Description
The record is a 98-nucleotide sequence from Gemmatimonas aurantiaca, which matches "Bacterial small signal recognition particle RNA" in Rfam. Its family is annotated with signal recognition particle, plasma membrane targeting and SRP-dependent cotranslational protein targeting to membrane, signal sequence recognition in the Gene Ontology. By type it is a non-coding RNA gene. Lineage of the source: Bacteria > Pseudomonadati > Gemmatimonadia > Gemmatimonadaceae > Gemmatimonas aurantiaca.
RNA sequence: CCCGGGUCCCGGAGGGCGUCAGACCGCCAACUCCGUCAGGACCCCGAAGGUAGCAGCGGUACGUGGAUCCUGUCGUCGCUUCGUCAGGCCCGGGGCAC
Dot-bracket structure: ...(((((.(((((.(((.(((.((((.....((((....(((.....)))....))))...)))).)..)).)))..)))))...))))).......